Rfam assigns this 36-nucleotide RNA sequence from Flavobacterium sp. Leaf359 to the family "DUF805b RNA".
RNA sequence: AAGGAGGAAGCUGAAAAUCCUUUCCAAGAGUAGGCA
Numbered sequence: 001a002a003g004g005a006g007g008a009a010g011c012u013g014a015a016a017a018u019c020c021u022u023u024c025c026a027a028g029a030g031u032a033g034g035c036a
Stems, first nucleotide, its partner, number of pairs: 002021004010035003
A search with the family's covariance model found it, with a score of 43 bits.